[Rfam]
RNA sequence: UUGCCAUUUAAAAUGGUGCUUUCGAUAACGUUUUUCGUUAAUUUUUUAAUGACUAAUCAUGUACCGUUGCACAGCCGUGGCAG
Numbered sequence: 001u002u003g004c005c006a007u008u009u010a011a012a013a014u015g016g017u018g019c020u021u022u023c024g025a026u027a028a029c030g031u032u033u034u035u036c037g038u039u040a041a042u043u044u045u046u047u048a049a050u051g052a053c054u055a056a057u058c059a060u061g062u063a064c065c066g067u068u069g070c071a072c073a074g075c076c077g078u079g080g081c082a083g
Stems, first nucleotide, its partner, number of pairs: 002082006012068007024058003032055001035052007
The family of this 83-nucleotide sequence from Nephila pilipes is "mir-1923 microRNA precursor family". A search with the family's covariance model found it, with a score of 97 bits. Gene Ontology terms of the family: miRNA-mediated post-transcriptional gene silencing and RISC complex.